[Rfam]
RNA sequence: UAGGAGUAAGCCGAAAAUCCUGACUUAGAGUAGGCA
Numbered sequence: 001u002a003g004g005a006g007u008a009a010g011c012c013g014a015a016a017a018u019c020c021u022g023a024c025u026u027a028g029a030g031u032a033g034g035c036a
Stems, first nucleotide, its partner, number of pairs: 002021004010035003
RNA: DUF805b RNA